[Rfam]
RNA sequence: CGUUGUUUUGAGCAACAUGCCAAUGUCCUGGCGAUUUGAAAGGGACGCCUUCGGGUAAUCGCAUGCCAAUGUCACCUUAACCUGAGAGGUGACGCCUUCGGGCGGUACCCCCGUUAACCUUUGAGAAUGGGGAUCGCAAUCAAGUCGCGA
Numbered sequence: 001c002g003u004u005g006u007u008u009u010g011a012g013c014a015a016c017a018u019g020c021c022a023a024u025g026u027c028c029u030g031g032c033g034a035u036u037u038g039a040a041a042g043g044g045a046c047g048c049c050u051u052c053g054g055g056u057a058a059u060c061g062c063a064u065g066c067c068a069a070u071g072u073c074a075c076c077u078u079a080a081c082c083u084g085a086g087a088g089g090u091g092a093c094g095c096c097u098u099c100g101g102g103c104g105g106u107a108c109c110c111c112c113g114u115u116a117a118c119c120u121u122u123g124a125g126a127a128u129g130g131g132g133a134u135c136g137c138a139a140u141c142a143a144g145u146c147g148c149g150a
Stems, first nucleotide, its partner, number of pairs: 002016005025046005031062006047056003071093005078107002081105002094103003110131005119144003132141003
This 150-nucleotide sequence from Yersinia pseudotuberculosis belongs to the Rfam family "STAXI RNA". NCBI's taxonomy places the organism under Bacteria, Pseudomonadota, Yersiniaceae, Yersinia pseudotuberculosis complex, Yersinia pseudotuberculosis.